[Rfam]
RNA sequence: UGUUAAAUCAGGAAAUGUAAACAAUUCCUAGGCCACGUGUAUAAUGUUUGUAAGUCAUUCCUAGAAAUUAUUCACAAUCCGUGUAACA
Numbered sequence: 001u002g003u004u005a006a007a008u009c010a011g012g013a014a015a016u017g018u019a020a021a022c023a024a025u026u027c028c029u030a031g032g033c034c035a036c037g038u039g040u041a042u043a044a045u046g047u048u049u050g051u052a053a054g055u056c057a058u059u060c061c062u063a064g065a066a067a068u069u070a071u072u073c074a075c076a077a078u079c080c081g082u083g084u085a086a087c088a
Base pairs, nucleotide, nucleotide: 009083010082012080014078016076017075018074020072021071023069024068025067026066028064029063030062031061032060040052041051042050
RNA: mir-384 microRNA precursor family
Organism: Rhinolophus ferrumequinum